About this RNA
This 157-nucleotide RNA from Granulicatella sp. zg-ZJ belongs to the Rfam family "M-box riboswitch aptamer (ykoK leader)".
RNA sequence: AUAAAGUAUCGGUAGGUGAGACUACCACAGGGAUACGGAUUACUACCGCAAAAUAGUGGAGACACUAUUCGUUGGUCAGCAGUGAUUGUCGUUAAGGCGAUGACUAAUGUAAUUUCAUUGCCCUGUGAUGUUAAAGCUUGAACGAUGAAUAUGGCGC
Numbered sequence: 001a002u003a004a005a006g007u008a009u010c011g012g013u014a015g016g017u018g019a020g021a022c023u024a025c026c027a028c029a030g031g032g033a034u035a036c037g038g039a040u041u042a043c044u045a046c047c048g049c050a051a052a053a054u055a056g057u058g059g060a061g062a063c064a065c066u067a068u069u070c071g072u073u074g075g076u077c078a079g080c081a082g083u084g085a086u087u088g089u090c091g092u093u094a095a096g097g098c099g100a101u102g103a104c105u106a107a108u109g110u111a112a113u114u115u116c117a118u119u120g121c122c123c124u125g126u127g128a129u130g131u132u133a134a135a136g137c138u139u140g141a142a143c144g145a146u147g148a149a150u151a152u153g154g155c156g157c
Stems, first nucleotide, its partner, number of pairs: 006152004011143001013095001015138003020132003026127007039113005046074001048072002055066004082104002085101001088098003
Lineage of the source: Bacteria > Bacillota > Bacilli > Lactobacillales > Granulicatella.
From the family's description: M-box riboswitch, also know as ykoK leader is described as a metaloregulatory RNA that sense divalent metals and function as a genetic control element of genes related to divalent metal transport in bacteria. It was first reported upstream of the B.subtilis ykoK gene and genes with related functions in other bacteria.
A reference for the family is Ramesh and Winkler (2010), "Magnesium-sensing riboswitches in bacteria", RNA Biol.